The record is a 395-nucleotide sequence from Bacillus sp. HNG, which matches "Bacterial RNase P class B" in Rfam. On this family, see Brown, Nucleic Acids Res 1999: "The Ribonuclease P Database".
RNA sequence: ACGUUCGGGUAAUCGCUGCAGGGAGACCUGCAGAGGAAAGUCCAUGCUCGCACGGGCUGAGAUGUCCGUAGUGUUCGUGCCUAGCGAAAUGAUAAGCUAGGGUAGCGAGGAGUUAAUCUUUGCUAACGGCAGGAAAAAAACCUAAGUCCAUCUGGAUAUGGUUUGACUACCUAUAAAGUGCCACAGUGACGAAGUCUUGUAAGAAAUUACAAGAGUGGAACGAGGUAAACCCCACGAGCGAGAAACCCAAAUUAUGGUAGGGGCACUUUCUCUCUUGGAAAUGAACAAGGAGAAGGACAGACACUUUAUCGUCUGUAGAUAGAUGAUUACCACCGGAGUACGAGGUAUUCGUUUUACCGAUUGAAGUACGAUGGAACAAAACAUGGCUUACAGAA
Numbered sequence: 001a002c003g004u005u006c007g008g009g010u011a012a013u014c015g016c017u018g019c020a021g022g023g024a025g026a027c028c029u030g031c032a033g034a035g036g037a038a039a040g041u042c043c044a045u046g047c048u049c050g051c052a053c054g055g056g057c058u059g060a061g062a063u064g065u066c067c068g069u070a071g072u073g074u075u076c077g078u079g080c081c082u083a084g085c086g087a088a089a090u091g092a093u094a095a096g097c098u099a100g101g102g103u104a105g106c107g108a109g110g111a112g113u114u115a116a117u118c119u120u121u122g123c124u125a126a127c128g129g130c131a132g133g134a135a136a137a138a139a140a141c142c143u144a145a146g147u148c149c150a151u152c153u154g155g156a157u158a159u160g161g162u163u164u165g166a167c168u169a170c171c172u173a174u175a176a177a178g179u180g181c182c183a184c185a186g187u188g189a190c191g192a193a194g195u196c197u198u199g200u201a202a203g204a205a206a207u208u209a210c211a212a213g214a215g216u217g218g219a220a221c222g223a224g225g226u227a228a229a230c231c232c233c234a235c236g237a238g239c240g241a242g243a244a245a246c247c248c249a250a251a252u253u254a255u256g257g258u259a260g261g262g263g264c265a266c267u268u269u270c271u272c273u274c275u276u277g278g279a280a281a282u283g284a285a286c287a288a289g290g291a292g293a294a295g296g297a298c299a300g301a302c303a304c305u306u307u308a309u310c311g312u313c314u315g316u317a318g319a320u321a322g323a324u325g326a327u328u329a330c331c332a333c334c335g336g337a338g339u340a341c342g343a344g345g346u347a348u349u350c351g352u353u354u355u356a357c358c359g360a361u362u363g364a365a366g367u368a369c370g371a372u373g374g375a376a377c378a379a380a381a382c383a384u385g386g387c388u389u390a391c392a393g394a395a
Stems, first nucleotide, its partner, number of pairs: 004395003007391001008331007016033006038389003042386005047242005052069006075237005080101006102127001103125009128232002131172003139163004146157003178230002180226003195214008246262003266296007297316006333374003338369004